Rfam assigns this 80-nucleotide RNA sequence to the family "S4-Clostridia ribosomal protein leader". Its Rfam clan is "Ribosomal Protein S4 Leader clan".

Nucleotides: 080
Base pairs, nucleotide, nucleotide: 005049006048007047008046009045010044011043012042050072051071052070053069054068055067056066057065058064
Number, partner (000 for none) and nucleotide at each position: 001000g002000a003000a004000a005049g006048g007047u008046c009045g010044u011043c012042u013000c014000u015000u016000c017000u018000c019000a020000c021000a022000u023000u024000u025000c026000c027000g028000a029000c030000g031000g032000g033000a034000g035000g036000c037000g038000g039000g040000g041000a042012g043011g044010a045009c046008g047007g048006c049005u050072g051071g052070a053069u054068g055067c056066a057065u058064g059000u060000c061000c062000g063000g064058c065057a066056u067055g068054u069053a070052u071051c072050c073000c074000a075000a076000u077000u078000a079000g080000a